[Rfam]
RNA: Group II catalytic intron D1-D4-4
RNA sequence: UAACAGGUGAGAGUCCCGUCAUGGUAAAAGCCAAAGCCAUGUAGCUAGGAUGGCGCAGGGGGAUAUGGAAACAUUACCUUCUGAAGCCCAUCGACAAAGUCUGCAAUAAGGCAGGCGAACAAAUAUCUGGUACUUGCAAGCAGC
Numbered sequence: 001u002a003a004c005a006g007g008u009g010a011g012a013g014u015c016c017c018g019u020c021a022u023g024g025u026a027a028a029a030g031c032c033a034a035a036g037c038c039a040u041g042u043a044g045c046u047a048g049g050a051u052g053g054c055g056c057a058g059g060g061g062g063a064u065a066u067g068g069a070a071a072c073a074u075u076a077c078c079u080u081c082u083g084a085a086g087c088c089c090a091u092c093g094a095c096a097a098a099g100u101c102u103g104c105a106a107u108a109a110g111g112c113a114g115g116c117g118a119a120c121a122a123a124u125a126u127c128u129g130g131u132a133c134u135u136g137c138a139a140g141c142a143g144c
Stems, first nucleotide, its partner, number of pairs: 020041005049092005056083006065074001067072001099116006120140001